[Rfam]
RNA sequence: AUAUUGGCUGAUGCGGCAGCAUCAAGAUUCACAAACUUUAAGGCUUGAGUAGGGGAGGUACACGGUCACCUCCCUUACUCGAAAGGUUCCUUUCUGAUGGGAAUCUUGAUGAUGCUGCAUCGGCAAAUAU
Numbered sequence: 001a002u003a004u005u006g007g008c009u010g011a012u013g014c015g016g017c018a019g020c021a022u023c024a025a026g027a028u029u030c031a032c033a034a035a036c037u038u039u040a041a042g043g044c045u046u047g048a049g050u051a052g053g054g055g056a057g058g059u060a061c062a063c064g065g066u067c068a069c070c071u072c073c074c075u076u077a078c079u080c081g082a083a084a085g086g087u088u089c090c091u092u093u094c095u096g097a098u099g100g101g102a103a104u105c106u107u108g109a110u111g112a113u114g115c116u117g118c119a120u121c122g123g124c125a126a127a128u129a130u
Base pairs, nucleotide, nucleotide: 010121011120012119013118014117015116016115017114018113020111021110022109023108024107025106026105027104028103029102030101032099033098
A member of the RNA family "mir-172 microRNA precursor family" from Salix viminalis, 130 nucleotides long. Rfam describes the family as follows. mir-172 has been experimentally verified in Arabidopsis thaliana. This family is thought to target mRNAs coding for APETALA2-like transcription factors. The mature sequence is excised from the 3' arm of the hairpin. Lineage of the source: Eukaryota > Embryophyta > Gunneridae > Salicaceae > Salix. The base pairs follow the family's consensus structure, which was predicted with PFOLD.